[Rfam]
RNA sequence: GGUUUAAUUACCCAAGUUUGAGGUAAGUUUGAGGUAAUUGAAUGUUUCGGUGCAGAGUUUCGGCUGCUGUGGCUUGAAGUAAAAUUUGGAACGUCCUGCCAUCAACGGAACAAC
Numbered sequence: 001g002g003u004u005u006a007a008u009u010a011c012c013c014a015a016g017u018u019u020g021a022g023g024u025a026a027g028u029u030u031g032a033g034g035u036a037a038u039u040g041a042a043u044g045u046u047u048c049g050g051u052g053c054a055g056a057g058u059u060u061c062g063g064c065u066g067c068u069g070u071g072g073c074u075u076g077a078a079g080u081a082a083a084a085u086u087u088g089g090a091a092c093g094u095c096c097u098g099c100c101a102u103c104a105a106c107g108g109a110a111c112a113a114c
Stems, first nucleotide, its partner, number of pairs: 003042010045079004050073002093111002096108003

Overview
The family of this 114-nucleotide RNA from Onchocerca ochengi is "SL1 RNA". Its family is annotated with mRNA trans splicing, via spliceosome in the Gene Ontology. The literature on the family includes a 2001 paper in Gene by Dassanayake et al., "Trans-spliced leader RNA, 5S-rRNA genes and novel variant orphan spliced-leader of the lymphatic filarial nematode Wuchereria bancrofti, and a sensitive polymerase chain reaction based detection assay". The organism belongs to Onchocerca, within Eukaryota. About the family: This family represents the SL1 RNA. SL1 is commonly located in the spacer region between 5S-rRNA genes where it is involved in trans-splicing. Rfam classes the family as a non-coding RNA gene. It scores 85 bits against the family's covariance model.